[Rfam]
RNA sequence: GCUGGACGCGCGGGAGAGAUCCUGUGAUUCGUCACCGGACGCCGAAGGAGCAACCGCCCCGGAAACUCUCAGGCACAAGGGACCGCGCCGGCCAA
Numbered sequence: 001g002c003u004g005g006a007c008g009c010g011c012g013g014g015a016g017a018g019a020u021c022c023u024g025u026g027a028u029u030c031g032u033c034a035c036c037g038g039a040c041g042c043c044g045a046a047g048g049a050g051c052a053a054c055c056g057c058c059c060c061g062g063a064a065a066c067u068c069u070c071a072g073g074c075a076c077a078a079g080g081g082a083c084c085g086c087g088c089c090g091g092c093c094a095a
Stems, first nucleotide, its partner, number of pairs: 008088006020039003041074003044070002048068003054062002

The record is a 95-nucleotide sequence from Novosphingobium sp. TH158, which matches "Glycine riboswitch aptamer" in Rfam. The organism belongs to Novosphingobium, within Bacteria. It scores 56 bits against the family's covariance model. The family has 44 seed sequences and 9,425 matches in Rfam 15.1.